[Rfam]
RNA sequence: AGCGCAUUUAUUGAUCAGCACCGUGCAAUGUACGGGGCCGAGCCGAUUUGCAAAGCAUUGCAAGUCGCCCCG
Numbered sequence: 001a002g003c004g005c006a007u008u009u010a011u012u013g014a015u016c017a018g019c020a021c022c023g024u025g026c027a028a029u030g031u032a033c034g035g036g037g038c039c040g041a042g043c044c045g046a047u048u049u050g051c052a053a054a055g056c057a058u059u060g061c062a063a064g065u066c067g068c069c070c071c072g
Stems, first nucleotide, its partner, number of pairs: 033072005044067002047064007
The family of this 72-nucleotide RNA sequence from Cognatundibacterium luofuense is "ALIL pseudoknot". A reference for the family is Mazauric et al. (2008), "Apical loop-internal loop RNA pseudoknots: a new type of stimulator of -1 translational frameshifting in bacteria", J Biol Chem. Rfam classes the family as a cis-regulatory element.